The family of this 179-nucleotide sequence is "malK-I RNA".

RNA sequence: UUCCGGGCGCUGCGUCUACUCCACAAACAUAGGCGCAGCUUCCGAAAAAAGGAGGAAAAAAAAGCCCGGCUCGGGCUGCGGCAGUGUGGAGACCUGCCGUAAUGCGGGACAUCCCAAAGCGGAUGGCCGCGAGGGCGUACCAAGCGAAGGCUGUACGUCCGGAGCAUGAAAAAAUGGCG
Numbered sequence: 001u002u003c004c005g006g007g008c009g010c011u012g013c014g015u016c017u018a019c020u021c022c023a024c025a026a027a028c029a030u031a032g033g034c035g036c037a038g039c040u041u042c043c044g045a046a047a048a049a050a051g052g053a054g055g056a057a058a059a060a061a062a063a064g065c066c067c068g069g070c071u072c073g074g075g076c077u078g079c080g081g082c083a084g085u086g087u088g089g090a091g092a093c094c095u096g097c098c099g100u101a102a103u104g105c106g107g108g109a110c111a112u113c114c115c116a117a118a119g120c121g122g123a124u125g126g127c128c129g130c131g132a133g134g135g136c137g138u139a140c141c142a143a144g145c146g147a148a149g150g151c152u153g154u155a156c157g158u159c160c161g162g163a164g165c166a167u168g169a170a171a172a173a174a175u176g177g178c179g
Base pairs, nucleotide, nucleotide: 007041009039010038011037012036013035014034015033016032017031018030064076065075066074067073069165070164071163072162077101078100079099080098081097082096083095084094086093087092104130105129106128107127110125111124112123133160134159135158136157137156138155139154140153143152144151145150